This 75-nucleotide RNA from Micromonospora sp. MH33 belongs to the Rfam family "ASpks TB sRNA". It scores 79 bits against the family's covariance model. Rfam 15.1 lists 9,052 matches to the family in 683 species. The literature on the family includes a 2009 paper in Mol Microbiol by Arnvig and Young, "Identification of small RNAs in Mycobacterium tuberculosis". Rfam classes the family as an antisense RNA.
RNA sequence: CUUGAUCGACCCGAGCAGCAGCGGUCGACCUGCCGGGCGAUCCUGCCCGUACGUCGCCAGCAGCGCCUGCGCCUC
Dot-bracket structure: ..............((.......)).....(((....((...(((.(.(....).).)))...))...)))....